A member of the RNA family "RT-15 RNA" from Achromobacter xylosoxidans, 190 nucleotides long. NCBI's taxonomy places the organism under Bacteria, Burkholderiales, Alcaligenaceae, Achromobacter, Achromobacter xylosoxidans. Rfam classes the family as a small RNA.
Nucleotides: 190
Stems, first nucleotide, its partner, number of pairs: 004042003012035004017030005056183006062082002065079005086132005095127001097126003102123002106117004134169002137166009149156002
Number, partner (000 for none) and nucleotide at each position: 001000a002000u003000g004042c005041g006040c007000u008000u009000g010000c011000u012035g013034c014033u015032u016000c017030g018029c019028c020027g021026c022000c023000a024000c025000g026021g027020c028019g029018g030017c031000c032015g033014g034013g035012c036000c037000a038000a039000c040006g041005c042004g043000c044000u045000u046000g047000a048000u049000g050000a051000u052000c053000u054000g055000g056183u057182c058181a059180c060179g061178c062082c063081g064000c065079u066078g067077g068076c069075c070000c071000a072000c073000a074000a075069g076068g077067c078066c079065a080000c081063c082062g083000a084000u085000a086132u087131g088130c089129g090128c091000a092000c093000u094000a095127g096000a097126g098125g099124a100000a101000a102123c103122c104000a105000a106117c107116g108115g109114c110000u111000c112000a113000g114109g115108c116107c117106g118000g119000g120000c121000g122103g123102g124099u125098c126097c127095c128090g129089c130088g131087c132086a133000g134169u135168u136000u137166u138165c139164c140163c141162g142161c143160u144159g145158a146000u147000c148000c149156g150155g151000c152000a153000a154000u155150c156149c157000u158145u159144c160143g161142g162141c163140g164139g165138g166137g167000c168135g169134a170000c171000g172000u173000g174000g175000a176000u177000a178061g179060c180059g181058u182057g183056a184000u185000a186000u187000c188000u189000c190000g